[Rfam]
The record is a 60-nucleotide RNA from Oryctolagus cuniculus, which matches "Gag/pol translational readthrough site" in Rfam. The match comes from Rfam's covariance-model search (69 bits). Taxonomically the source falls in Oryctolagus (Eukaryota, Gnathostomata, Lagomorpha, Leporidae). The base pairs follow the family's consensus structure, which is taken from published work. For this family Rfam cites "RNA pseudoknots: translational frameshifting and readthrough on viral RNAs" (ten Dam et al., Virus Genes, 1990).
RNA sequence: UAGGAAAGACAGGGCCAGGAGCCCCCCUGAGCCCAGGGUAACUCUUGACAUAGGGGGGCA
Numbered sequence: 001u002a003g004g005a006a007a008g009a010c011a012g013g014g015c016c017a018g019g020a021g022c023c024c025c026c027c028u029g030a031g032c033c034c035a036g037g038g039u040a041a042c043u044c045u046u047g048a049c050a051u052a053g054g055g056g057g058g059c060a
Base pairs, nucleotide, nucleotide: 008039010037012034013033014032015031016029017028018027019026022058023057024056025055
Dot-bracket structure: .......(.(.((((((((..[[[[)))).))))..).)...............]]]]..